[Rfam]
RNA sequence: AUCUUUGCGCUUGGGGCAAUGACGCAGCUAGUGAGGUAAUAACCGAGGCGCGUCUAUUGCUGGUUGAAAACUAUUUCCAAACCCCCUCUUCGGCUUGGGUUCGUCCUAAGCCUUUGAGAAUUUUUGGAAGGGUUUCUAAUUU
Dot-bracket structure: ....................(((((.(((.....(((....)))..))))))))...............................(((...((((((((.....))))))))...)))............((.(....).))
Numbered sequence: 001a002u003c004u005u006u007g008c009g010c011u012u013g014g015g016g017c018a019a020u021g022a023c024g025c026a027g028c029u030a031g032u033g034a035g036g037u038a039a040u041a042a043c044c045g046a047g048g049c050g051c052g053u054c055u056a057u058u059g060c061u062g063g064u065u066g067a068a069a070a071c072u073a074u075u076u077c078c079a080a081a082c083c084c085c086c087u088c089u090u091c092g093g094c095u096u097g098g099g100u101u102c103g104u105c106c107u108a109a110g111c112c113u114u115u116g117a118g119a120a121u122u123u124u125u126g127g128a129a130g131g132g133u134u135u136c137u138a139a140u141u142u
Stems, first nucleotide, its partner, number of pairs: 021054005027049003035044003086118003092112008131142002134139001
Notes:
The family of this 142-nucleotide RNA sequence from Cuscuta campestris is "U4 spliceosomal RNA". The family's RNA type in Rfam is spliceosomal small nuclear RNA. NCBI's taxonomy places the organism under Eukaryota, Euphyllophyta, Mesangiospermae, Pentapetalae, Cuscuta sect. Cleistogrammica. Rfam's curators write: U4 small nuclear RNA (U4 snRNA) is a component of the major U2-dependent spliceosome. Pairs were carried over by alignment from the consensus structure, which is taken from published work.